[Rfam]
A member of the RNA family "Bacterial RNase P class B" from Abyssicoccus albus, 387 nucleotides long. Rfam's curators write: Ribonuclease P (RNase P) is a ubiquitous endoribonuclease, found in archaea, bacteria and eukarya as well as chloroplasts and mitochondria.

RNA sequence: AUUCUCGGAUAAUCGCUAUAAAUUUAUGUUUAUAGAGGAAAGUCCAUGCUCACACGCAUCUGAGAUGAGCGUAGUGUUCGUGCUUGGUGAAACAAUAAGCCAAGGCAAUUCGUAUUGAACGUUUGACGGCAGCAAAACAACCUAAGUCAUAUGAUAUGGUUUAAUAUGCUUGAAAGUGCCACAGUGACGGAGCUUAUAUAGAAAUAUAUGAGGUGGAACGAGGUAAACCCCACGAGUGAGCAAUCCAAAUUAGGUAGGAGCACUUCUUGAACGGAAAUGAACGUAGAUAGAAGACAUGUAUAACAUGUAGACAGAUGAUUAUCACCAACGUACGAGUGUAACUAGUACACGUUUGCAGUACUAUGGUACAGAACAUGGCUUAUAGAG
Number, nucleotide and partner (000 for none) at each position: 001a000002u000003u000004c387005u386006c385007g383008g323009a322010u321011a320012a319013u318014c317015g000016c035017u034018a033019u032020a031021a030022a000023u000024u000025u000026a000027u000028g000029u000030u021031u020032a019033u018034a017035g016036a000037g000038g000039a000040a381041a380042g379043u000044c378045c377046a376047u375048g374049c240050u239051c238052a237053c236054a072055c071056g070057c069058a000059u068060c067061u000062g000063a000064g000065a000066u000067g060068a059069g057070c056071g055072u054073a000074g000075u000076g000077u000078u235079c234080g233081u232082g231083c104084u103085u102086g101087g100088u099089g000090a000091a000092a000093c000094a000095a000096u000097a000098a000099g088100c087101c086102a085103a084104g083105g127106c125107a124108a123109u000110u121111c000112g000113u000114a000115u000116u000117g000118a000119a000120c000121g110122u000123u108124u107125g106126a000127c105128g230129g229130c000131a170132g169133c168134a167135a000136a000137a000138c000139a161140a160141c159142c158143u000144a000145a000146g155147u154148c153149a000150u000151a000152u000153g148154a147155u146156a000157u000158g142159g141160u140161u139162u000163a000164a000165u000166a000167u134168g133169c132170u131171u000172g000173a000174a000175a000176g228177u227178g224179c223180c222181a000182c000183a000184g000185u000186g000187a000188c000189g000190g000191a000192g000193c212194u211195u210196a209197u208198a207199u206200a205201g000202a000203a000204a000205u200206a199207u198208a197209u196210g195211a194212g193213g000214u000215g000216g000217a000218a000219c000220g000221a000222g180223g179224u178225a000226a000227a177228c176229c129230c128231c082232a081233c080234g079235a078236g053237u052238g051239a050240g049241c000242a000243a000244u259245c258246c257247a000248a000249a000250u000251u000252a000253g000254g000255u000256a000257g246258g245259a244260g000261c000262a000263c293264u292265u291266c290267u289268u000269g000270a000271a000272c000273g000274g000275a000276a000277a000278u000279g000280a000281a000282c000283g000284u000285a000286g000287a000288u000289a267290g266291a265292a264293g263294a308295c307296a306297u305298g304299u303300a000301u000302a000303a299304c298305a297306u296307g295308u294309a000310g000311a000312c000313a000314g000315a000316u000317g014318a013319u012320u011321a010322u009323c008324a000325c366326c365327a364328a000329c000330g361331u360332a359333c358334g000335a000336g000337u000338g000339u000340a000341a000342c000343u000344a000345g000346u000347a000348c000349a000350c000351g000352u000353u000354u000355g000356c000357a000358g333359u332360a331361c330362u000363a000364u327365g326366g325367u000368a000369c000370a000371g000372a000373a000374c048375a047376u046377g045378g044379c042380u041381u040382a000383u007384a000385g006386a005387g004
On this family, see Frank and Pace, Annu Rev Biochem 1998: "Ribonuclease P: unity and diversity in a tRNA processing ribozyme". Gene Ontology terms of the family: dimeric ribonuclease P complex, ribonuclease P activity and tRNA processing.